Small nucleolar RNA snoR639/H1: a 130-nucleotide sequence from Apis cerana. The organism belongs to Apis cerana, within Eukaryota. A reference for the family is Giordano et al. (1999), "minifly, a Drosophila gene required for ribosome biogenesis", J Cell Biol. Rfam links the family to the GO terms nucleolus and RNA processing. By type it is an H/ACA-box small nucleolar RNA. About the family: snoR639 or snoH1 belongs to the H/ACA class of snoRNAs which are thought to guide the sites of modification of uridines to pseudouridines. snoH1 is found in an intron of the mfl gene in Drosophila.
RNA sequence: ACCCCAUACUAUUAAGCCGACAUUUUCAAUGUAUUUUAAUUGAAAAUGUGUGCUCGUUAUGGGAACAGCAAAGUCUGCUCAUUGUGUAUGAUUGUAUUUAUUUUUAUAAUCAAAGAAUUGAUGCAGGACA
Numbered sequence: 001a002c003c004c005c006a007u008a009c010u011a012u013u014a015a016g017c018c019g020a021c022a023u024u025u026u027c028a029a030u031g032u033a034u035u036u037u038a039a040u041u042g043a044a045a046a047u048g049u050g051u052g053c054u055c056g057u058u059a060u061g062g063g064a065a066c067a068g069c070a071a072a073g074u075c076u077g078c079u080c081a082u083u084g085u086g087u088a089u090g091a092u093u094g095u096a097u098u099u100a101u102u103u104u105u106a107u108a109a110u111c112a113a114a115g116a117a118u119u120g121a122u123g124c125a126g127g128a129c130a
Stems, first nucleotide, its partner, number of pairs: 020049008077124002089112007